[Rfam]
RNA sequence: CAUUGAAUAGCAGGGCAAUUCUCCUUUGGCGGAUGAUUGCACUACAAGUACAAUGUGCAAUAUUUCUGCCAAAGGAGAAUUGCACCGUUAUUCUUCU
Numbered sequence: 001c002a003u004u005g006a007a008u009a010g011c012a013g014g015g016c017a018a019u020u021c022u023c024c025u026u027u028g029g030c031g032g033a034u035g036a037u038u039g040c041a042c043u044a045c046a047a048g049u050a051c052a053a054u055g056u057g058c059a060a061u062a063u064u065u066c067u068g069c070c071a072a073a074g075g076a077g078a079a080u081u082g083c084a085c086c087g088u089u090a091u092u093c094u095u096c097u
Base pairs, nucleotide, nucleotide: 005093006092007091008090009089011087013085015083016082017081018080019079021077022076023075024074027071028070029069030068031067032066033065035063
RNA: mir-399 microRNA precursor family